[Rfam]
RNA sequence: AUAAUGGUACUUCUGUCCAGCCACAGCCUGAACCGGAAGCACUGUCGGAUCACGGCAGCGCAGGCCGGCCGCACGCAAUGGGGGCAGCUCGGAAGAAUUUCGGAGGGGUUAGAGUCCCAUGG
Numbered sequence: 001a002u003a004a005u006g007g008u009a010c011u012u013c014u015g016u017c018c019a020g021c022c023a024c025a026g027c028c029u030g031a032a033c034c035g036g037a038a039g040c041a042c043u044g045u046c047g048g049a050u051c052a053c054g055g056c057a058g059c060g061c062a063g064g065c066c067g068g069c070c071g072c073a074c075g076c077a078a079u080g081g082g083g084g085c086a087g088c089u090c091g092g093a094a095g096a097a098u099u100u101c102g103g104a105g106g107g108g109u110u111a112g113a114g115u116c117c118c119a120u121g122g
Stems, first nucleotide, its partner, number of pairs: 012119001013087006088105003092101003106118003
RNA: pemK RNA